[Rfam]
RNA: Bacterial large subunit ribosomal RNA, nucleotides 2876 to 3136
Organism: Stackebrandtia endophytica
Nucleotides: 261
Stems, first nucleotide, its partner, number of pairs: 001159008011145004017045007047102005055096003062089005067082006106140003113133005162173003178257004182199005204250003207246005213239002220233005
Number, partner (000 for none) and nucleotide at each position: 001159g002158g003157a004156a005155a006154c007153u008152u009000g010000a011145g012144a013143a014142g015000g016000g017045c018044u019043g020042u021041c022040c023039c024000u025000a026000g027000u028000a029000c030000g031000a032000g033000a034000g035000g036000a037000c038000c039023g040022g041021g042020a043019c044018g045017g046000a047102c048101g049100a050099a051098c052000c053000u054000c055096u056095g057094g058000u059000g060000u061000g062089c063088c064087a065086g066085u067082u068081g069080u070079c071078c072077c073000g074000c075000c076000a077072g078071g079070g080069g081068c082067a083000c084000g085066g086065c087064u088063g089062g090000u091000u092000a093000g094057c095056u096055a097000c098051g099050u100049u101048c102047g103000g104000a105000a106140g107139a108138g109000a110000u111000a112000a113133c114132c115131g116130c117129u118000g119000a120000a121000a122000g123000c124000a125000u126000c127000u128000a129117a130116g131115c132114g133113g134000g135000a136000a137000a138108c139107u140106c141000g142014c143013u144012u145011c146000a147000a148000g149000a150000u151000a152008a153007g154006g155005u156004u157003u158002c159001c160000a161000a162173c163172a164171c165000c166000c167000u168000c169000g170000g171164g172163u173162g174000u175000g176000a177000a178257g179256g180255c181254c182199c183198c184197c185196a186195g187000c188000u189000a190000g191000a192000c193000u194000a195186c196185u197184g198183g199182g200000u201000u202000g203000a204250u205249a206248g207246g208245c209244c210243a211242g212000a213239a214238a215000u216000g217000u218000a219000a220233g221232c222231a223230c224229a225000g226000c227000a228000a229224u230223g231222u232221g233220u234000u235000c236000a237000g238214u239213u240000g241000a242211c243210u244209g245208g246207u247000a248206c249205u250204a251000a252000c253000a254181g255180g256179c257178c258000g259000a260000u261000c